Notes
The record is a 56-nucleotide sequence from Streptomyces zhaozhouensis, which matches "L17-Actino-Proteobacteria ribosomal protein leader" in Rfam. The source organism's lineage runs through Bacteria, Actinomycetota, Actinomycetes, Streptomycetaceae and Streptomyces. The family's RNA type in Rfam is cis-regulatory leader. The match comes from Rfam's covariance-model search (62 bits).

RNA sequence: UUCCGGGGCACCCGCCCCGGGCGACCUGACACCGGUACCUGACACGGCCGGUGCAG
Number, nucleotide and partner (000 for none) at each position: 001u000002u021003c020004c019005g018006g017007g016008g015009c014010a000011c000012c000013c000014g009015c008016c007017c006018c005019g004020g003021g002022c000023g000024a000025c000026c056027u055028g054029a000030c053031a052032c051033c050034g049035g048036u047037a000038c000039c000040u000041g000042a000043c000044a000045c000046g000047g036048c035049c034050g033051g032052u031053g030054c028055a027056g026